[Rfam]
RNA sequence: GCGGUCUGAGGGCAGGUUGGUUUUAGUACGAGAGGAACAAACCAACGGCACCUCUGGUCUAUCGGUUGUCUGGCAAGGCAUGCCGAGCAGCUACGUGCUCGCGGAUAAGGGCUGAAAGCAUCUAAGCCCGAAACCGCCCCUGAAAAGAGACCGCUUAGAGUACUCGUAAAAGACGAGUUUGAUAGAGCUGGUGUGUACGCACCAAGGCAACGAGGUGUUCAGCUCGCAGCUACUAACAACUCUGCAGC
Numbered sequence: 001g002c003g004g005u006c007u008g009a010g011g012g013c014a015g016g017u018u019g020g021u022u023u024u025a026g027u028a029c030g031a032g033a034g035g036a037a038c039a040a041a042c043c044a045a046c047g048g049c050a051c052c053u054c055u056g057g058u059c060u061a062u063c064g065g066u067u068g069u070c071u072g073g074c075a076a077g078g079c080a081u082g083c084c085g086a087g088c089a090g091c092u093a094c095g096u097g098c099u100c101g102c103g104g105a106u107a108a109g110g111g112c113u114g115a116a117a118g119c120a121u122c123u124a125a126g127c128c129c130g131a132a133a134c135c136g137c138c139c140c141u142g143a144a145a146a147g148a149g150a151c152c153g154c155u156u157a158g159a160g161u162a163c164u165c166g167u168a169a170a171a172g173a174c175g176a177g178u179u180u181g182a183u184a185g186a187g188c189u190g191g192u193g194u195g196u197a198c199g200c201a202c203c204a205a206g207g208c209a210a211c212g213a214g215g216u217g218u219u220c221a222g223c224u225c226g227c228a229g230c231u232a233c234u235a236a237c238a239a240c241u242c243u244g245c246a247g248c
Base pairs, nucleotide, nucleotide: 001154002153003152004151005150006149007148010141011140012139016046017045018044019043020042021041022040023039047099048098049097050096051095055093056092057091062086063085064084065083066082067080068079069078070077071076102136103135104134109129110128111127112126113125158242159241160240161239162178163177164176165175166174183235184234185233186231187230188229189228190227191225193223199218200217201216202215203214206211
Archaeal large subunit ribosomal RNA: a 248-nucleotide part of an RNA from Methanothrix soehngenii. Lineage of the source: Archaea > Methanobacteriati > Methanotrichales > Methanotrichaceae > Methanothrix soehngenii. The family's consensus secondary structure is taken from published work.